RNA sequence: AUUUUCCUUCGGGGCAGGGUGCAAUUCCCGACCGGCGGUGAUGAGGAAACUCAAAGCCCGUGACCCGUAUUCUCCGGAAUGCGGUGGAUUUGGUGAAAUUCCAAAGCCGACAGUGACAGUCUGGAUGGGAGAAGGAUCAA
Numbered sequence: 001a002u003u004u005u006c007c008u009u010c011g012g013g014g015c016a017g018g019g020u021g022c023a024a025u026u027c028c029c030g031a032c033c034g035g036c037g038g039u040g041a042u043g044a045g046g047a048a049a050c051u052c053a054a055a056g057c058c059c060g061u062g063a064c065c066c067g068u069a070u071u072c073u074c075c076g077g078a079a080u081g082c083g084g085u086g087g088a089u090u091u092g093g094u095g096a097a098a099u100u101c102c103a104a105a106g107c108c109g110a111c112a113g114u115g116a117c118a119g120u121c122u123g124g125a126u127g128g129g130a131g132a133a134g135g136a137u138c139a140a
Base pairs, nucleotide, nucleotide: 005136006135007134008133009132010131017029018028019027031120032119033109034108035061036060037059038058056107057106065084066083089105090104091103092102093101111123112122113121
RNA: FMN riboswitch aptamer (RFN element)